[Rfam]
RNA sequence: UUAUCCUUUAAUAUAGCCCAGAGAGGCUAAAAAGGGCUACUUGAUAUUUUAUACGUUAUUAUAUCUUUGCUUUUUCAUGCCCUUUUGUCCUCUCUGACGGAAGGGUAUUUUAU
Numbered sequence: 001u002u003a004u005c006c007u008u009u010a011a012u013a014u015a016g017c018c019c020a021g022a023g024a025g026g027c028u029a030a031a032a033a034g035g036g037c038u039a040c041u042u043g044a045u046a047u048u049u050u051a052u053a054c055g056u057u058a059u060u061a062u063a064u065c066u067u068u069g070c071u072u073u074u075u076c077a078u079g080c081c082c083u084u085u086u087g088u089c090c091u092c093u094c095u096g097a098c099g100g101a102a103g104g105g106u107a108u109u110u111u112a113u
Stems, first nucleotide, its partner, number of pairs: 004036006014029005044073001046071001048069001051066001053064001055062002077108013

The family of this 113-nucleotide RNA sequence from Viridibacillus arenosi is "PyrR binding site".
A search with the family's covariance model found it, with a score of 54 bits.
The source organism's lineage runs through Bacteria, Bacillati, Bacilli, Caryophanaceae and Viridibacillus arenosi.
The base pairs follow the family's consensus structure, which is taken from published work.
From the family's description: This family represents the PyrR binding site and terminator structure. This RNA structure is found upstream of a variety of genes involved in pyrimidine biosynthesis and transport.
The literature on the family includes a 2001 paper in Nucleic Acids Res by Bonner et al., "Molecular recognition of pyr mRNA by the Bacillus subtilis attenuation regulatory protein PyrR".